[Rfam]
RNA: DUF805 RNA
Organism: Flavobacterium sediminis
Nucleotides: 068
Stems, first nucleotide, its partner, number of pairs: 006023004034050003041062002
Number, partner (000 for none) and nucleotide at each position: 001000u002000u003000c004000g005000a006023a007022u008021g009020g010000a011000g012000a013000c014000c015000g016000g017000a018000a019000a020009c021008c022007a023006u024000u025000u026000u027000a028000a029000a030000a031000c032000g033000g034050g035049g036048c037000g038000u039000a040000a041062c042061c043000g044000a045000a046000a047000a048036g049035c050034c051000a052000g053000a054000u055000g056000a057000g058000u059000a060000g061042g062041g063000a064000c065000c066000a067000a068000a